[Rfam]
Notes: sroC RNA: a 164-nucleotide RNA sequence from Citrobacter rodentium. Lineage of the source: Bacteria > Enterobacterales > Enterobacteriaceae > Citrobacter > Citrobacter rodentium. The base pairs follow the family's consensus structure, which was predicted with PFOLD. This family consists of a number of bacterial sroC RNA genes of around 160 bases in length. sroC is found in several Enterobacterial species. It base-pairs with GcvB. This interaction triggers the degradation of GcvB by RNase E, alleviating the GcvB-mediated mRNA repression of other amino acid-related transport and metabolic genes. Its family is annotated with regulation of RNA stability and RNA binding in the Gene Ontology.
RNA sequence: ACUAACAAAAAAGAAAUGGGGCGGGUUUACCUUGCCCUCUCGAUUGCUGGUCAGCACGGACAGACUAUACGCCUGAUGGUCGUUCCCCAUCAGGCCUGAAAACCGAAACAGGCCGAUCAACAAUCUUCGAGGGUAGCGCUGCUACCCUUUUUUUUCGGAGUAGA
Numbered sequence: 001a002c003u004a005a006c007a008a009a010a011a012a013g014a015a016a017u018g019g020g021g022c023g024g025g026u027u028u029a030c031c032u033u034g035c036c037c038u039c040u041c042g043a044u045u046g047c048u049g050g051u052c053a054g055c056a057c058g059g060a061c062a063g064a065c066u067a068u069a070c071g072c073c074u075g076a077u078g079g080u081c082g083u084u085c086c087c088c089a090u091c092a093g094g095c096c097u098g099a100a101a102a103c104c105g106a107a108a109c110a111g112g113c114c115g116a117u118c119a120a121c122a123a124u125c126u127u128c129g130a131g132g133g134u135a136g137c138g139c140u141g142c143u144a145c146c147c148u149u150u151u152u153u154u155u156c157g158g159a160g161u162a163g164a
Stems, first nucleotide, its partner, number of pairs: 014161001019037004023031002038132005043124004049118002057105003061098003071095009